[Rfam]
The record is a 138-nucleotide sequence from Bacillus sp. THAF10, which matches "FMN riboswitch aptamer (RFN element)" in Rfam. It scores 125 bits against the family's covariance model. Pairs were carried over by alignment from the consensus structure, which is taken from published work. Gene Ontology term of the family: FMN binding.

RNA sequence: AUCUAUCUUCGGGGCAGGGUGAAAUUCCCGACCGGCGGUGAUGAGGAAAGUAUCUCUAAGCCCGCGAGCCUUCUUAUGGGGGCAGGAUUUGGUGUGAUUCCAAAGCCGACAGUAUAGUCUGGAUGGGAGAAGAUGGAG
Numbered sequence: 001a002u003c004u005a006u007c008u009u010c011g012g013g014g015c016a017g018g019g020u021g022a023a024a025u026u027c028c029c030g031a032c033c034g035g036c037g038g039u040g041a042u043g044a045g046g047a048a049a050g051u052a053u054c055u056c057u058a059a060g061c062c063c064g065c066g067a068g069c070c071u072u073c074u075u076a077u078g079g080g081g082g083c084a085g086g087a088u089u090u091g092g093u094g095u096g097a098u099u100c101c102a103a104a105g106c107c108g109a110c111a112g113u114a115u116a117g118u119c120u121g122g123a124u125g126g127g128a129g130a131a132g133a134u135g136g137a138g
Base pairs, nucleotide, nucleotide: 003136004135005134006133007132008131009130010129017029018028019027031118032117033108034107035065036064037063038062060106061105068083069082070081088104089103090102091101092100110121111120112119